[Rfam]
RNA sequence: GCCGGUCCUCGGUAGUGGUUCCCGGGCAGAACUCCCGAGGACUUCGAUCGAUGACCGGC
Numbered sequence: 001g002c003c004g005g006u007c008c009u010c011g012g013u014a015g016u017g018g019u020u021c022c023c024g025g026g027c028a029g030a031a032c033u034c035c036c037g038a039g040g041a042c043u044u045c046g047a048u049c050g051a052u053g054a055c056c057g058g059c
Stems, first nucleotide, its partner, number of pairs: 001059007009051005017043005023037004028033001

Shown here is a 59-nucleotide RNA sequence from Actinophytocola sp., a member of the family "Actino-pnp RNA". It is annotated as a cis-regulatory element.